[Rfam]
RNA sequence: UCAAGCGCCGAGCGGGGAAGGUGAAAACCUUCAAACAGUUCGCGCCGCGUAACGGAAGUUGCUGGCACGAAGGGUGAAGAGUUAAGCGACGAACAAUCCUUCUCUCCACCU
Numbered sequence: 001u002c003a004a005g006c007g008c009c010g011a012g013c014g015g016g017g018a019a020g021g022u023g024a025a026a027a028c029c030u031u032c033a034a035a036c037a038g039u040u041c042g043c044g045c046c047g048c049g050u051a052a053c054g055g056a057a058g059u060u061g062c063u064g065g066c067a068c069g070a071a072g073g074g075u076g077a078a079g080a081g082u083u084a085a086g087c088g089a090c091g092a093a094c095a096a097u098c099c100u101u102c103u104c105u106c107c108a109c110c111u
Stems, first nucleotide, its partner, number of pairs: 015104007022096001032076002036073001039071004046054002
RNA: RtT RNA